[Rfam]
DsrA RNA: an 84-nucleotide RNA from Cedecea neteri.
RNA sequence: AACACAUCAGAUUUCCUGAUGUAACGAAUUUCAAGUGCUUCUUGCUUAAGCAAGUUUUCAUCCCGGCUCCCCGGCCGGGAUGCU
Number, nucleotide and partner (000 for none) at each position: 001a000002a000003c000004a022005c021006a020007u019008c018009a017010g016011a000012u000013u000014u000015c000016c010017u009018g008019a007020u006021g005022u004023a000024a000025c000026g057027a056028a055029u053030u050031u049032c000033a047034a046035g045036u044037g043038c000039u000040u000041c000042u000043u037044g036045c035046u034047u033048a000049a031050g030051c000052a000053a029054g000055u028056u027057u026058u000059c082060a081061u080062c079063c078064c077065g076066g000067c074068u073069c000070c000071c000072c000073g068074g067075c000076c065077g064078g063079g062080a061081u060082g059083c000084u000
Rfam classes the family as a small RNA. A reference for the family is Sledjeski and Gottesman (1995), "A small RNA acts as an antisilencer of the H-NS-silenced rcsA gene of Escherichia coli", Proc Natl Acad Sci USA. From the family's description: DsrA RNA regulates both transcription, by overcoming transcriptional silencing by the nucleoid-associated H-NS protein, and translation, by promoting efficient translation of the stress sigma factor, RpoS. These two activities of DsrA can be separated by mutation: the first of three stem-loops of the 85 nucleotide RNA is necessary for RpoS translation but not for anti-H-NS action, while the second stem-loop is essential for antisilencing and less critical for RpoS translation. The third stem-loop, which behaves as a transcription terminator, can be substituted by the trp transcription terminator without loss of either DsrA function. The sequence of the first stem-loop of DsrA is complementary with the upstream leader portion of RpoS messenger RNA, suggesting that pairing of DsrA with the RpoS message might be important for translational regulation. The base pairs follow the family's consensus structure, which is taken from published work. A search with the family's covariance model found it, with a score of 76 bits.